A member of the RNA family "Small nucleolar RNA SNORD67" from Orycteropus afer, 101 nucleotides long. The literature on the family includes a 2001 paper in EMBO J by Huttenhofer et al., "RNomics: an experimental approach that identifies 201 candidates for novel, small, non-messenger RNAs in mouse". The family's RNA type in Rfam is C/D-box small nucleolar RNA. The organism belongs to Orycteropus afer, within Eukaryota. A search with the family's covariance model found it, with a score of 46 bits. Rfam describes the family as follows. snoRNA HBII-166 belongs to the C/D family of snoRNAs.

RNA sequence: UCUGAGAAUGAUGGGUUACACAGAGAUGCAAUCACAGUGUUAGGGAAUGCAGGCAACAUUCAGUACCACCCUAGUGAAAAAAUGCCCAAGGACCAUUCACA
Dot-bracket structure: ...(.(((.............(..((((...((...(((((....))))).))...))).)..)...............................))).).
Numbered sequence: 001u002c003u004g005a006g007a008a009u010g011a012u013g014g015g016u017u018a019c020a021c022a023g024a025g026a027u028g029c030a031a032u033c034a035c036a037g038u039g040u041u042a043g044g045g046a047a048u049g050c051a052g053g054c055a056a057c058a059u060u061c062a063g064u065a066c067c068a069c070c071c072u073a074g075u076g077a078a079a080a081a082a083u084g085c086c087c088a089a090g091g092a093c094c095a096u097u098c099a100c101a
Stems, first nucleotide, its partner, number of pairs: 004100001006098003022064001025061001026059003032053002037050005